Record summary:
The family of this 203-nucleotide RNA sequence from Peribacillus loiseleuriae is "Bacillus sRNA ncr1575". A reference for the family is Irnov et al. (2010), "Identification of regulatory RNAs in Bacillus subtilis", Nucleic Acids Res. It scores 141 bits against the family's covariance model. By type it is a small RNA.
RNA sequence: UAAUAUAAAUCGAAAGGAAUGAUGGGUGGACAAUGGAUAACUAAUCUUAUUUUUUAGAAUUUGAAAUUUUAUAUUUCGAAUGAUAAUAAUUUAGGAUUAGUCUACCCAUUUUUCUACCAUCAUUAGAGCUAUCAAGCGCGGUAGCUUAUUUCAGUACGGUAAAAUGCGGCUAAUCCUUCCAAAUGAAUUGGGAGGAUUUUUUA
Numbered sequence: 001u002a003a004u005a006u007a008a009a010u011c012g013a014a015a016g017g018a019a020u021g022a023u024g025g026g027u028g029g030a031c032a033a034u035g036g037a038u039a040a041c042u043a044a045u046c047u048u049a050u051u052u053u054u055u056a057g058a059a060u061u062u063g064a065a066a067u068u069u070u071a072u073a074u075u076u077c078g079a080a081u082g083a084u085a086a087u088a089a090u091u092u093a094g095g096a097u098u099a100g101u102c103u104a105c106c107c108a109u110u111u112u113u114c115u116a117c118c119a120u121c122a123u124u125a126g127a128g129c130u131a132u133c134a135a136g137c138g139c140g141g142u143a144g145c146u147u148a149u150u151u152c153a154g155u156a157c158g159g160u161a162a163a164a165u166g167c168g169g170c171u172a173a174u175c176c177u178u179c180c181a182a183a184u185g186a187a188u189u190g191g192g193a194g195g196a197u198u199u200u201u202u203a
Stems, first nucleotide, its partner, number of pairs: 016114004023108004029102003042099008052089002054086001059081009122151001128145006172198011